[Rfam]
RNA sequence: GAUAAUAACUUAUCGUAGUUGAUACAUGCCUUAUUUUGAAUAAGUUAUCCAAGUUACCGACAACUUGCUUUGCCCGUUGAAUUUCUCGGUGAAAUUCUCUUUGUUGGGGCCCCGAACCCCAACUUGCCUUGUCCGUGGAAUUUCUCGGUGAAAUUCUCUUUGUUGGGGCCCCGAACCCCAACUUGCCUUGUCCGUGGAAUUUCUCGGUGAAAUUCUCUUUGUUGGGGCCCCGAACCCCAACUUGCCUUGUCCGUGGAAUUUCAACAUGUACUUCG
Numbered sequence: 001g002a003u004a005a006u007a008a009c010u011u012a013u014c015g016u017a018g019u020u021g022a023u024a025c026a027u028g029c030c031u032u033a034u035u036u037u038g039a040a041u042a043a044g045u046u047a048u049c050c051a052a053g054u055u056a057c058c059g060a061c062a063a064c065u066u067g068c069u070u071u072g073c074c075c076g077u078u079g080a081a082u083u084u085c086u087c088g089g090u091g092a093a094a095u096u097c098u099c100u101u102u103g104u105u106g107g108g109g110c111c112c113c114g115a116a117c118c119c120c121a122a123c124u125u126g127c128c129u130u131g132u133c134c135g136u137g138g139a140a141u142u143u144c145u146c147g148g149u150g151a152a153a154u155u156c157u158c159u160u161u162g163u164u165g166g167g168g169c170c171c172c173g174a175a176c177c178c179c180a181a182c183u184u185g186c187c188u189u190g191u192c193c194g195u196g197g198a199a200u201u202u203c204u205c206g207g208u209g210a211a212a213u214u215c216u217c218u219u220u221g222u223u224g225g226g227g228c229c230c231c232g233a234a235c236c237c238c239a240a241c242u243u244g245c246c247u248u249g250u251c252c253g254u255g256g257a258a259u260u261u262c263a264a265c266a267u268g269u270a271c272u273u274c275g
Stems, first nucleotide, its partner, number of pairs: 001014005015061002021058001023056002028045002031043005063136002067132002072127002079097007103123007110114001137157008159244001162241005168235001173229001176226002179224004194220001196218003200212004252275002255272002258269002
Rfam assigns this 275-nucleotide RNA sequence from Staphylococcus epidermidis to the family "Staphylococcus sRNA 35 (srn_0335)". The family has 3 seed sequences and 67 matches in Rfam 15.1. The source organism's lineage runs through Bacteria, Bacillota, Bacilli, Caryophanales and Staphylococcus epidermidis. The base pairs follow the family's consensus structure, which was predicted with RNAfold.